[Rfam]
RNA sequence: UCUGUCAUCAUUUUUGUGAUUUUUGCAAUUGUGUUUACAACCAAAUUGCAUAGUCACAAAAGUGAUGGGAGA
Numbered sequence: 001u002c003u004g005u006c007a008u009c010a011u012u013u014u015u016g017u018g019a020u021u022u023u024u025g026c027a028a029u030u031g032u033g034u035u036u037a038c039a040a041c042c043a044a045a046u047u048g049c050a051u052a053g054u055c056a057c058a059a060a061a062g063u064g065a066u067g068g069g070a071g072a
Stems, first nucleotide, its partner, number of pairs: 002071002005068002008065013024050007
RNA: mir-153 microRNA precursor family
Organism: Strigamia maritima